[Rfam]
RNA: Small nucleolar RNA snR191
Nucleotides: 265
Stems, first nucleotide, its partner, number of pairs: 003080003019067004024062005089175001091173004102129001106124007135161004142156006177259003183253003193244004199238004204222005
Number, partner (000 for none) and nucleotide at each position: 001000u002000u003080c004079c005078a006000u007000c008000g009000u010000u011000c012000u013000u014000u015000g016000u017000c018000a019067g020066g021065a022064u023000g024062u025061c026060u027059u028058c029000c030000u031000c032000a033000g034000c035000g036000u037000g038000c039000a040000u041000u042000c043000g044000u045000g046000c047000c048000g049000c050000u051000g052000c053000c054000a055000a056000a057000c058028g059027g060026a061025g062024a063000g064022g065021u066020c067019u068000g069000u070000u071000a072000c073000a074000a075000c076000u077000u078005u079004g080003g081000u082000a083000g084000a085000u086000u087000g088000a089175g090000u091173a092172u093171c094170c095000c096000g097000a098000c099000u100000u101000c102129g103000a104000u105000u106124u107123c108122g109121g110120c111119a112118c113000g114000u115000c116000u117000u118112g119111u120110g121109c122108u123107g124106a125000a126000u127000a128000u129102c130000u131000u132000u133000c134000c135161g136160u137159c138158c139000a140000c141000a142156c143155c144154g145153u146152c147151g148000u149000u150000u151147u152146g153145g154144c155143g156142g157000g158138g159137g160136a161135c162000a163000c164000u165000c166000a167000a168000u169000g170094g171093g172092a173091u174000u175089u176000u177259g178258u179257g180000u181000u182000u183253c184252g185251u186000u187000u188000g189000a190000g191000u192000u193244g194243a195242a196241a197000u198000u199238c200237g201236a202235g203000g204222a205221u206220g207219g208218a209000c210000a211000u212000u213000u214000u215000a216000g217000u218208u219207c220206c221205a222204u223000c224000a225000u226000a227000a228000c229000c230000c231000g232000a233000g234000u235202c236201u237200c238199g239000a240000a241196u242195u243194u244193c245000u246000u247000a248000g249000u250000u251185a252184c253183g254000c255000u256000u257179c258178a259177u260000a261000c262000a263000c264000u265000u